[Rfam]
RNA sequence: AGAGGCCCUCCCGGCUGGGGCAGAAUGCUUGCCUUGUCGCCGCAGCGACGAAGCAAGCAUUCUGCCAGGCUGCUCACGCUGCCCGC
Numbered sequence: 001a002g003a004g005g006c007c008c009u010c011c012c013g014g015c016u017g018g019g020g021c022a023g024a025a026u027g028c029u030u031g032c033c034u035u036g037u038c039g040c041c042g043c044a045g046c047g048a049c050g051a052a053g054c055a056a057g058c059a060u061u062c063u064g065c066c067a068g069g070c071u072g073c074u075c076a077c078g079c080u081g082c083c084c085g086c
Base pairs, nucleotide, nucleotide: 004083005082006081012072013071014070015069016068019066020065021064022063023062024061025060026059027058028057029056030055031054032053036049037048038047039046040045
The family of this 86-nucleotide RNA from Cnephaeus nilssonii is "mir-9195 microRNA precursor family". The match comes from Rfam's covariance-model search (91 bits). The family's consensus secondary structure was predicted with RNAalifold. Rfam links the family to the GO terms RISC complex and miRNA-mediated post-transcriptional gene silencing. NCBI's taxonomy places the organism under Eukaryota, Metazoa, Vertebrata, Teleostomi, Cnephaeus.